[Rfam]
RNA sequence: AGGGCAGUAUCGAUGACGAACUGCACCACUUUCGUAUAACUGAAUAAAGACAGUAAAUUUCUGCCUUGAUCCAUAUGGACAGGGACGGAGGG
Dot-bracket structure: .(((((((.((......))))))).)).................................((((((((.(((....)))))))).)))....
pan motif: a 92-nucleotide RNA sequence from Bacillus sp. SG-1. The sequence is in the family's curated seed alignment. The base pairs follow the family's consensus structure, which is taken from published work.